RNA: chrB-b RNA
RNA sequence: UCGGGCCUGAACGCGGGCGCCCGGUCAGACGGCUUUCGUCCAAGUCCCGC
Numbered sequence: 001u002c003g004g005g006c007c008u009g010a011a012c013g014c015g016g017g018c019g020c021c022c023g024g025u026c027a028g029a030c031g032g033c034u035u036u037c038g039u040c041c042a043a044g045u046c047c048c049g050c
Base pairs, nucleotide, nucleotide: 001024002023003022004021005020006019013050014049015048016047017046028040029039030038031037032036